[Rfam]
int-alpA RNA: a 79-nucleotide RNA from Malikia granosa. The source organism's lineage runs through Bacteria, Pseudomonadati, Burkholderiales, Comamonadaceae and Malikia. It scores 49 bits against the family's covariance model. The family's consensus secondary structure is taken from published work. Rfam 15.1 lists 577 matches to the family in 491 species. It is annotated as a small RNA.
RNA sequence: AACGCGCCUAGCCAUCGACUGAUCCCCGUUGGUGAAUACCCGGACACCCUGACCGGGCGGCGCGUUUUCCAUUUUAGGG
Numbered sequence: 001a002a003c004g005c006g007c008c009u010a011g012c013c014a015u016c017g018a019c020u021g022a023u024c025c026c027c028g029u030u031g032g033u034g035a036a037u038a039c040c041c042g043g044a045c046a047c048c049c050u051g052a053c054c055g056g057g058c059g060g061c062g063c064g065u066u067u068u069c070c071a072u073u074u075u076a077g078g079g
Base pairs, nucleotide, nucleotide: 001066002065003064004063005062006061007060008059011033012032013031014030039057040056041055042054043053047079048078049077050076051075